[Rfam]
RNA sequence: GGAUAGCACAACACUUUUUGCUAUCCUCGGCCAAUAACGCAAUGACAUGUAGGAUAACUUUUCCAUGUGUCAUUGUGUUAUUGGUUGGGGAUAGCAAAACAGUCCUAUCC
Numbered sequence: 001g002g003a004u005a006g007c008a009c010a011a012c013a014c015u016u017u018u019u020g021c022u023a024u025c026c027u028c029g030g031c032c033a034a035u036a037a038c039g040c041a042a043u044g045a046c047a048u049g050u051a052g053g054a055u056a057a058c059u060u061u062u063c064c065a066u067g068u069g070u071c072a073u074u075g076u077g078u079u080a081u082u083g084g085u086u087g088g089g090g091a092u093a094g095c096a097a098a099a100c101a102g103u104c105c106u107a108u109c110c
Stems, first nucleotide, its partner, number of pairs: 002109004016099009026089025052063003

Overview:
This 110-nucleotide RNA from Prunus yedoensis belongs to the Rfam family "MIR6274 microRNA precursor family". Its family is annotated with miRNA-mediated post-transcriptional gene silencing and RISC complex in the Gene Ontology.